[Rfam]
RNA sequence: CCGCCCGAGGAGCGCUGCGACGCCGUGAGACCACGUUUCACUGCGCCAGGCUCGAGCUGACGGACUUUUCCUGCAACGGCGCUCGGACCUU
Numbered sequence: 001c002c003g004c005c006c007g008a009g010g011a012g013c014g015c016u017g018c019g020a021c022g023c024c025g026u027g028a029g030a031c032c033a034c035g036u037u038u039c040a041c042u043g044c045g046c047c048a049g050g051c052u053c054g055a056g057c058u059g060a061c062g063g064a065c066u067u068u069u070c071c072u073g074c075a076a077c078g079g080c081g082c083u084c085g086g087a088c089c090u091u
Stems, first nucleotide, its partner, number of pairs: 003057002006054003021045003025041006
SAH (S-adenosyl-L-homocysteine) riboswitch aptamer: a 91-nucleotide sequence from Sutterella wadsworthensis. It scores 54 bits against the family's covariance model. The organism belongs to Sutterella wadsworthensis, within Bacteria.